The family of this 100-nucleotide RNA sequence from Sphingobium sp. SYK-6 is "Glycine riboswitch aptamer". The organism belongs to Sphingobium, within Bacteria.

RNA sequence: UGACGCGAUCCGGGAGAGUCCGGGCCCGAUCAGUCAGGUCCGGCGCCGAAGGAGCAACCGGUCCCGGAAACUCUCAGGUACCAGGGACCGGAUCGCCAGG
Numbered sequence: 001u002g003a004c005g006c007g008a009u010c011c012g013g014g015a016g017a018g019u020c021c022g023g024g025c026c027c028g029a030u031c032a033g034u035c036a037g038g039u040c041c042g043g044c045g046c047c048g049a050a051g052g053a054g055c056a057a058c059c060g061g062u063c064c065c066g067g068a069a070a071c072u073c074u075c076a077g078g079u080a081c082c083a084g085g086g087a088c089c090g091g092a093u094c095g096c097c098a099g100g
Stems, first nucleotide, its partner, number of pairs: 006095008020043007045079003048075002052073003058067002